[Rfam]
RNA sequence: AGAGCCCAGCUGAUUUCGUCUUGGUAAUAAGCUCGUCAUUGAGAUUAUCACCGGGUGUAAAUCAGCUUGGCUCU
Numbered sequence: 001a002g003a004g005c006c007c008a009g010c011u012g013a014u015u016u017c018g019u020c021u022u023g024g025u026a027a028u029a030a031g032c033u034c035g036u037c038a039u040u041g042a043g044a045u046u047a048u049c050a051c052c053g054g055g056u057g058u059a060a061a062u063c064a065g066c067u068u069g070g071c072u073c074u
Stems, first nucleotide, its partner, number of pairs: 001074006008067009019055002022053004027048003032043002
Dot-bracket structure: ((((((.(((((((((..((.((((.(((..((........))..))).))))))...))))))))).))))))
The record is a 74-nucleotide sequence from Caenorhabditis elegans, which matches "mir-39 microRNA precursor family" in Rfam. The sequence is in the family's curated seed alignment. Clan: mir-36 clan. Rfam links the family to the GO terms miRNA-mediated post-transcriptional gene silencing and RISC complex.